U1 spliceosomal RNA: a 167-nucleotide RNA from Myotis brandtii. Gene Ontology terms of the family: U1 snRNP, pre-mRNA 5'-splice site binding and mRNA 5'-splice site recognition. Rfam describes the family as follows. U1 is a small nuclear RNA (snRNA) component of the spliceosome (involved in pre-mRNA splicing). Its 5' end forms complementary base pairs with the 5' splice junction, thus defining the 5' donor site of an intron. Taxonomically the source falls in Myotis (Eukaryota, Eumetazoa, Vertebrata, Amniota). The family's RNA type in Rfam is spliceosomal small nuclear RNA. The family's consensus secondary structure is taken from published work.
RNA sequence: ACACUUACCUGGCAGGGGAGAUACCAUGGUCAGGAAGGUGGUUCUCCCAGGGCGAGGCGAGGCUUAUCCAUGGCACUCGGAUAUGCUGACCCCUGAGAUUUCCCUAAAUGUGGGAAACCCGACUGCAUAACCAGUGGUGGUGGGGACUGCGUUCGCGCUCUCCCCGG
Number, nucleotide and partner (000 for none) at each position: 001a000002c000003a000004c000005u000006u000007a000008c000009c000010u000011g000012g126013c125014a124015g123016g048017g047018g046019a045020g044021a043022u000023a042024c041025c040026a039027u038028g000029g000030u000031c000032a000033g000034g000035a000036a000037g000038g027039u026040g025041g024042u023043u021044c020045u019046c018047c017048c016049a094050g093051g092052g091053c000054g000055a000056g000057g000058c000059g090060a000061g087062g086063c085064u000065u083066a082067u081068c080069c079070a000071u000072g000073g000074c000075a000076c000077u000078c000079g069080g068081a067082u066083a065084u000085g063086c062087u061088g000089a000090c059091c052092c051093c050094u049095g000096a000097g120098a000099u117100u116101u115102c000103c113104c112105u000106a000107a000108a000109u000110g000111u000112g104113g103114g000115a101116a100117a099118c000119c000120c097121g000122a000123c015124u014125g013126c012127a000128u000129a000130a000131c000132c000133a000134g000135u000136g000137g000138u000139g000140g000141u166142g165143g164144g163145g162146a161147c000148u000149g158150c157151g156152u000153u000154c000155g000156c151157g150158c149159u000160c000161u146162c145163c144164c143165c142166g141167g000